[Rfam]
RNA: A. fumigatus sRNA Afu_203
RNA sequence: GUUGAAAUUGAGUAAUUAAUUUUAAUUUCGGGCAAUGACGUCAUUUAAUGUCUUUUGUUCUUUGUCAUAAAUUUAUGACAAAGAACAAAAGACAUUAAAUGAC
Numbered sequence: 001g002u003u004g005a006a007a008u009u010g011a012g013u014a015a016u017u018a019a020u021u022u023u024a025a026u027u028u029c030g031g032g033c034a035a036u037g038a039c040g041u042c043a044u045u046u047a048a049u050g051u052c053u054u055u056u057g058u059u060c061u062u063u064g065u066c067a068u069a070a071a072u073u074u075a076u077g078a079c080a081a082a083g084a085a086c087a088a089a090a091g092a093c094a095u096u097a098a099a100u101g102a103c
Stems, first nucleotide, its partner, number of pairs: 003030005010023003040103007049094009059085001061083002063080007